RNA sequence: AUCGUUCAACCCUUAGGGUCGGAAGUAAGCUAGAGCUGAAGGAACGCGCA
Numbered sequence: 001a002u003c004g005u006u007c008a009a010c011c012c013u014u015a016g017g018g019u020c021g022g023a024a025g026u027a028a029g030c031u032a033g034a035g036c037u038g039a040a041g042g043a044a045c046g047c048g049c050a
Base pairs, nucleotide, nucleotide: 003046004045005044006043007042009019010018011017012016022047028037029036030035
Rfam assigns this 50-nucleotide sequence to the family "Glutamine riboswitch aptamer (glnA leader)". The literature on the family includes a 2011 paper in RNA Biol by Ames and Breaker, "Bacterial aptamers that selectively bind glutamine". Rfam's curators put it in the seed alignment. Pairs were carried over by alignment from the consensus structure, which is taken from published work.